[Rfam]
RNA: Streptomyces RNA 6106
Organism: Streptomyces sp. SID4985
RNA sequence: GCGCCGCCCCCGGGCGGUGCGUGCGCCCUCCAAGGGGCCCGAGGGGCGGGGGUGGUGCCGUGUCGGCGCAGCACCACCCCCGCGAC
Numbered sequence: 001g002c003g004c005c006g007c008c009c010c011c012g013g014g015c016g017g018u019g020c021g022u023g024c025g026c027c028c029u030c031c032a033a034g035g036g037g038c039c040c041g042a043g044g045g046g047c048g049g050g051g052g053u054g055g056u057g058c059c060g061u062g063u064c065g066g067c068g069c070a071g072c073a074c075c076a077c078c079c080c081c082g083c084g085a086c
Stems, first nucleotide, its partner, number of pairs: 001020007022043001024041002027037003046083013060069003